[Rfam]
RNA sequence: UCCUAAAAAAUUUAAUAUCCUUGUAUAAUAUCAGUUUAAAUGGUCUGAUAGUUUCUACCCCGCAGCCGAAAAUGCAGGACUACAAGGAAGUGUGCAAAAUAU
Dot-bracket structure: .................((((((((...((((((..........))))))........((.(((........))).))..))))))))..............